[Rfam]
RNA sequence: ACCGGCGUCCGGGCCCCUCUGGCGAGCAUGUGCUCGUGAUGUCGGACGCUUCAA
Numbered sequence: 001a002c003c004g005g006c007g008u009c010c011g012g013g014c015c016c017c018u019c020u021g022g023c024g025a026g027c028a029u030g031u032g033c034u035c036g037u038g039a040u041g042u043c044g045g046a047c048g049c050u051u052c053a054a
Stems, first nucleotide, its partner, number of pairs: 006048007022037006